Overview
A member of the RNA family "mir-544 microRNA precursor family" from Cnephaeus nilssonii, 102 nucleotides long. Its family is annotated with RISC complex and miRNA-mediated post-transcriptional gene silencing in the Gene Ontology. It scores 67 bits against the family's covariance model.
RNA sequence: AUCAUCUGAGGAUCUUGUUAAAAGGCAGAUUCUGUCCGAUGCCAUUGGGUCUGGGAUGGCCUGAGAUUCUGCAUUUCUAACAAGCUCCCCAGGUGUUGCUGC
Numbered sequence: 001a002u003c004a005u006c007u008g009a010g011g012a013u014c015u016u017g018u019u020a021a022a023a024g025g026c027a028g029a030u031u032c033u034g035u036c037c038g039a040u041g042c043c044a045u046u047g048g049g050u051c052u053g054g055g056a057u058g059g060c061c062u063g064a065g066a067u068u069c070u071g072c073a074u075u076u077c078u079a080a081c082a083a084g085c086u087c088c089c090c091a092g093g094u095g096u097u098g099c100u101g102c
Stems, first nucleotide, its partner, number of pairs: 003095003010088002014084007021076003025072005031066003

The family has 16 seed sequences and 10,750 matches in Rfam 15.1.